The family of this 113-nucleotide sequence from Propithecus coquereli is "Y RNA".
[Rfam]
RNA sequence: GACUGGUCCGAAGGUAGUGAGUUAUCUCACUUGAUUGUUCACAGUCAGUUACAGAUUGAACUCCUUGUUCUACUGCUUUUCCCAUUUCUCACACUGCACUUGACUAGUCUAAA
Numbered sequence: 001g002a003c004u005g006g007u008c009c010g011a012a013g014g015u016a017g018u019g020a021g022u023u024a025u026c027u028c029a030c031u032u033g034a035u036u037g038u039u040c041a042c043a044g045u046c047a048g049u050u051a052c053a054g055a056u057u058g059a060a061c062u063c064c065u066u067g068u069u070c071u072a073c074u075g076c077u078u079u080u081c082c083c084a085u086u087u088c089u090c091a092c093a094c095u096g097c098a099c100u101u102g103a104c105u106a107g108u109c110u111a112a113a
Base pairs, nucleotide, nucleotide: 001109002108003107004106005105006104007103008102010101011100014097015096017092018091019090020089021088044074047071048070
The family's consensus secondary structure is taken from published work.